[Rfam]
The record is an 87-nucleotide RNA from Thalassococcus sp. S3, which matches "L2-Alphaproteobacteria ribosomal protein leader" in Rfam. The base pairs follow the family's consensus structure, which is taken from published work. NCBI's taxonomy places the organism under Bacteria, Pseudomonadati, Pseudomonadota, Alphaproteobacteria, Thalassococcus. By type it is a cis-regulatory leader. For this family Rfam cites "Discovery of 20 novel ribosomal leader candidates in bacteria and archaea" (Eckert and Weinberg, BMC Microbiol, 2020). The match comes from Rfam's covariance-model search (53 bits).
RNA sequence: GGGGACCUUCGGGGCCCUACACCUUGGCCCGUAUGGGCCCAAACAGAGCCGGGCCAACACCCGGCAUUGCUAAACGGAAGACAGAAA
Numbered sequence: 001g002g003g004g005a006c007c008u009u010c011g012g013g014g015c016c017c018u019a020c021a022c023c024u025u026g027g028c029c030c031g032u033a034u035g036g037g038c039c040c041a042a043a044c045a046g047a048g049c050c051g052g053g054c055c056a057a058c059a060c061c062c063g064g065c066a067u068u069g070c071u072a073a074a075c076g077g078a079a080g081a082c083a084g085a086a087a
Base pairs, nucleotide, nucleotide: 001018002017003016004015006014007013008012027065028064029063